[Rfam]
RNA: ZMP/ZTP riboswitch aptamer (pfl RNA motif)
RNA sequence: AAUCGUCCGCGCGACUGGCGCCGUGAGAUGGAGCACACCAUCGGGAAGCGCGGGACGAAGGUGCGGGCGAGCGUCUCGCUGGCGCCUUGGUCGACGGAUUUGCCGCGCGCCUGGGCAUGUAAG
Numbered sequence: 001a002a003u004c005g006u007c008c009g010c011g012c013g014a015c016u017g018g019c020g021c022c023g024u025g026a027g028a029u030g031g032a033g034c035a036c037a038c039c040a041u042c043g044g045g046a047a048g049c050g051c052g053g054g055a056c057g058a059a060g061g062u063g064c065g066g067g068c069g070a071g072c073g074u075c076u077c078g079c080u081g082g083c084g085c086c087u088u089g090g091u092c093g094a095c096g097g098a099u100u101u102g103c104c105g106c107g108c109g110c111c112u113g114g115g116c117a118u119g120u121a122a123g
Base pairs, nucleotide, nucleotide: 003057006054007053008052009051010050011049012048015045016044017111018110019109020108021107028041029040030039031038101117102116103115104114